A member of the RNA family "Plastid-psbA-3 3UTR RNA" from Coptis chinensis, 55 nucleotides long.
Lineage of the source: Eukaryota > Embryophyta > Euphyllophyta > Spermatophyta > Coptis.
Its Rfam clan is "Plastid-psbA 3UTR RNA clan".

RNA sequence: GCGGGACUAAUACCAAAAUUCUUGUUCACAAGAAAGCGGUAUUAGUCCCGUGAUU
Numbered sequence: 001g002c003g004g005g006a007c008u009a010a011u012a013c014c015a016a017a018a019u020u021c022u023u024g025u026u027c028a029c030a031a032g033a034a035a036g037c038g039g040u041a042u043u044a045g046u047c048c049c050g051u052g053a054u055u
Base pairs, nucleotide, nucleotide: 001051002050003049004048005047006046007045008044009043010042011041012040013039014038019034020033021032022031023030024029